Annotation: The family of this 589-nucleotide part of an RNA from bacterium 1xD42-67 is "Bacterial large subunit ribosomal RNA". A reference for the family is Yusupov et al. (2001), "Crystal structure of the ribosome at 5.5 A resolution", Science. Its family is annotated with structural constituent of ribosome and ribosome in the Gene Ontology. Its Rfam clan is "LSU clan". The base pairs follow the family's consensus structure, which is taken from published work.
RNA sequence: CCCGCAACUAGACGGAAAGACCCCAUGGAGCUUUACUGUAGCUUAAUACUGAGGAUCGGUAAUCGAUGUACAGGAUAGGUGGGAGGCUUGGAAGCAUUGGCGUCAGCUAGUGUGGAGCCACCCUUGGGAUACCACCCUUCGAUUGCUGGUUUUCUAACCUGCGGCCGUGUAUCCGGUCGGGGGACACUGUUAGGUGGGCAGUUUGACUGGGGCGGUCGCCUCCUAAAAGGUAACGGAGGCGCUCAAAGGUUCGUUCAGCACGGACGGAAAUCGUGCAGUGAGUGUAAACGCAUAAACGAGCCUAACUGCGACACCGACGGGUGGAGCAGUAACGAAAGUUGGAGUUAGUGAUCCGGCGGUAUGCAAGUGGAAGUGCCGUCGCUCAACGGAUAAAAGCUACCCUGGGGAUAACAGGCUGAUCUCCCCCAAGCGUCCACAGCGACGGGGAGGUUUGGCACCUCGAUGUCGGCUCGUCACAUCCUGGGGCUGAAUUCGGUCCCAAGGGUUCGGCUGUUCGCCGAUCAAAGUGGCACGCGAGCUGGGUUCAGAACGUCGUGAGACAGUUCGGUCCCUAUCUGUUGCGGGCGUA
Numbered sequence: 001c002c003c004g005c006a007a008c009u010a011g012a013c014g015g016a017a018a019g020a021c022c023c024c025a026u027g028g029a030g031c032u033u034u035a036c037u038g039u040a041g042c043u044u045a046a047u048a049c050u051g052a053g054g055a056u057c058g059g060u061a062a063u064c065g066a067u068g069u070a071c072a073g074g075a076u077a078g079g080u081g082g083g084a085g086g087c088u089u090g091g092a093a094g095c096a097u098u099g100g101c102g103u104c105a106g107c108u109a110g111u112g113u114g115g116a117g118c119c120a121c122c123c124u125u126g127g128g129a130u131a132c133c134a135c136c137c138u139u140c141g142a143u144u145g146c147u148g149g150u151u152u153u154c155u156a157a158c159c160u161g162c163g164g165c166c167g168u169g170u171a172u173c174c175g176g177u178c179g180g181g182g183g184a185c186a187c188u189g190u191u192a193g194g195u196g197g198g199c200a201g202u203u204u205g206a207c208u209g210g211g212g213c214g215g216u217c218g219c220c221u222c223c224u225a226a227a228a229g230g231u232a233a234c235g236g237a238g239g240c241g242c243u244c245a246a247a248g249g250u251u252c253g254u255u256c257a258g259c260a261c262g263g264a265c266g267g268a269a270a271u272c273g274u275g276c277a278g279u280g281a282g283u284g285u286a287a288a289c290g291c292a293u294a295a296a297c298g299a300g301c302c303u304a305a306c307u308g309c310g311a312c313a314c315c316g317a318c319g320g321g322u323g324g325a326g327c328a329g330u331a332a333c334g335a336a337a338g339u340u341g342g343a344g345u346u347a348g349u350g351a352u353c354c355g356g357c358g359g360u361a362u363g364c365a366a367g368u369g370g371a372a373g374u375g376c377c378g379u380c381g382c383u384c385a386a387c388g389g390a391u392a393a394a395a396g397c398u399a400c401c402c403u404g405g406g407g408a409u410a411a412c413a414g415g416c417u418g419a420u421c422u423c424c425c426c427c428a429a430g431c432g433u434c435c436a437c438a439g440c441g442a443c444g445g446g447g448a449g450g451u452u453u454g455g456c457a458c459c460u461c462g463a464u465g466u467c468g469g470c471u472c473g474u475c476a477c478a479u480c481c482u483g484g485g486g487c488u489g490a491a492u493u494c495g496g497u498c499c500c501a502a503g504g505g506u507u508c509g510g511c512u513g514u515u516c517g518c519c520g521a522u523c524a525a526a527g528u529g530g531c532a533c534g535c536g537a538g539c540u541g542g543g544u545u546c547a548g549a550a551c552g553u554c555g556u557g558a559g560a561c562a563g564u565u566c567g568g569u570c571c572c573u574a575u576c577u578g579u580u581g582c583g584g585g586c587g588u589a
Stems, first nucleotide, its partner, number of pairs: 001585008010577003014572002022406004027402002029398005035202004042194007051154016068137001078136005085119003094113008158182003162179006205217004218240006241387001243343002249301006255281002258276006282291002306329004312323003331340003354381007363374002415456003419453001420450007430440002467542001468540004472534001473531005480505002483500006507521005548566004552561003